[Rfam]
RNA sequence: CCCAGCCUGAGGUGCAGUGCUGCAUCUCUGGUCAGUUGGGAGUCUGAGAUGAAGCACUGUAGCUCAGGAAGGGAG
Numbered sequence: 001c002c003c004a005g006c007c008u009g010a011g012g013u014g015c016a017g018u019g020c021u022g023c024a025u026c027u028c029u030g031g032u033c034a035g036u037u038g039g040g041a042g043u044c045u046g047a048g049a050u051g052a053a054g055c056a057c058u059g060u061a062g063c064u065c066a067g068g069a070a071g072g073g074a075g
Stems, first nucleotide, its partner, number of pairs: 006068003011063001013061009023051006030044002032041002
The record is a 75-nucleotide sequence from Eptesicus fuscus, which matches "mir-143 microRNA precursor family" in Rfam. A reference for the family is Lagos-Quintana et al. (2002), "Identification of tissue-specific microRNAs from mouse", Curr Biol.